Coronavirus 3' stem-loop II-like motif (s2m): a 44-nucleotide RNA from Mamastrovirus mustelae.
A reference for the family is Jonassen et al. (1998), "A common RNA motif in the 3' end of the genomes of astroviruses, avian infectious bronchitis virus and an equine rhinovirus", J Gen Virol.
From the family's description: The s2m motif is found in the 3' UTRs of astrovirus, coronavirus and equine rhinovirus genomes. Its function is unknown, but various viral 3' UTR regions have been found to play roles in viral replication and packaging. The seed alignment was expanded in 2020 by Eric Nawrocki.
Lineage of the source: Viruses > Riboviria > Pisuviricota > Mamastrovirus > Mamastrovirus mustelae.
The base pairs follow the family's consensus structure, which is taken from published work.
[Rfam]
RNA sequence: ACUACCCGAGGCCACGCCGAGUUAGGAUCGAGGGUACAGGUAGU
Numbered sequence: 001a002c003u004a005c006c007c008g009a010g011g012c013c014a015c016g017c018c019g020a021g022u023u024a025g026g027a028u029c030g031a032g033g034g035u036a037c038a039g040g041u042a043g044u
Stems, first nucleotide, its partner, number of pairs: 002043005011035003015030002017026002